[Rfam]
RNA sequence: GAAGCUGGCCAGACAGUCGCCGCCCGUUGUUCAUCAGAACACAGGGGGGAGGAAAGUCCGGACUCCACAGAGCAGGAUGACGGCUAACGGCCGCCCACCGUGAGGUGAGGAACAGGGCCACAGAGACGAGCGUAUUCAGUUACGGUGAAACGCGGUAACCUCCAUCCGGAGCAAGACCAAAUAGGCAGGCAAUGACGUUGCUCGCAGAGCCUGCGGGUAGGUUGCUUGAAUGUACAGGUAACUGUGCAUCUAGAGGAAUGACUGUCCACGACAGAAUCCGGCUUAUCGGCUGGCUUCACUU
Dot-bracket structure: ((((((((((((((((((.((.(((..((((......))))..))).))....[[[.[[[[[((((...[[[[.(((((.((((.....)))).(((((....)))).)((...(((((...........((((......)))).........)))..)))))))))))))...((((......((((((......((.]]]]))...)))))).....))))......((((((((....))))))))..........)))))))..........]]]]]]]].).))))))))))....